Source information:
MIR1886 microRNA precursor family: a 52-nucleotide RNA from Solanum tuberosum.

RNA sequence: UGAGAUGGAAUUAGCGUUUGCACAUGCGGUUCUAUGUUGAUUCCAUCUCAUG
Numbered sequence: 001u002g003a004g005a006u007g008g009a010a011u012u013a014g015c016g017u018u019u020g021c022a023c024a025u026g027c028g029g030u031u032c033u034a035u036g037u038u039g040a041u042u043c044c045a046u047c048u049c050a051u052g
Base pairs, nucleotide, nucleotide: 001050002049003048004047005046006045007044008043009042010041011040012039013038014037015036016035017034018029019028020027

Annotation
The family's consensus secondary structure was predicted with RNAalifold.